[Rfam]
Nucleotides: 280
Stems, first nucleotide, its partner, number of pairs: 007102002015097004026086006038074001040072001049071002052068003105145004147159003224241007246277004258272004
Number, partner (000 for none) and nucleotide at each position: 001000a002000c003000a004000a005000a006000u007102g008101c009000u010000a011000u012000g013000a014000c015097a016096a017095g018094g019000a020000g021000g022000a023000g024000u025000a026086c027085g028084c029083a030082g031081a032000u033000a034000c035000c036000g037000g038074a039000a040072g041000u042000c043000a044000a045000g046000a047000g048000a049071g050070a051000a052068g053067a054066u055000g056000g057000c058000u059000g060000g061000u062000g063000g064000a065000a066054a067053u068052u069000c070050u071049u072040c073000g074038u075000g076000a077000u078000g079000g080000a081031u082030u083029u084028g085027c086026g087000g088000a089000a090000g091000u092000a093000g094018c095017c096016u097015u098000u099000g100000a101008g102007c103000a104000g105145u106144g107143a108142a109000c110000c111000g112000a113000a114000a115000g116000g117000g118000c119000g120000u121000c122000a123000u124000a125000u126000g127000g128000c129000a130000g131000c132000u133000u134000a135000a136000g137000u138000a139000g140000a141000c142108u143107u144106c145105a146000a147159c148158g149157c150000a151000g152000u153000c154000c155000c156000a157149g158148c159147g160000u161000u162000a163000g164000a165000g166000g167000g168000g169000a170000a171000c172000g173000a174000u175000a176000u177000c178000g179000g180000a181000g182000a183000a184000a185000g186000g187000g188000u189000u190000g191000g192000a193000u194000g195000c196000c197000c198000a199000u200000g201000g202000a203000u204000u205000u206000u207000c208000c209000u210000g211000u212000a213000u214000u215000g216000g217000c218000a219000g220000a221000g222000u223000g224241c225240a226239a227238a228237g229236a230235g231000a232000g233000g234000u235230u236229u237228c238227u239226u240225u241224g242000a243000a244000u245000u246277u247276a248275g249274g250000u251000g252000g253000u254000a255000a256000c257000a258272c259271g260270g261269a262000u263000g264000u265000u266000a267000u268000a269261u270260u271259c272258g273000c274249c275248c276247u277246a278000a279000g280000c

Shown here is a 280-nucleotide RNA sequence from Sporofaciens musculi, a member of the family "T-box leader". It scores 107 bits against the family's covariance model. The base pairs follow the family's consensus structure, which is taken from published work. Rfam describes the family as follows. Uncharged tRNA acts as the effector for transcription antitermination of genes in the T-box leader family. Rfam classes the family as a cis-regulatory leader.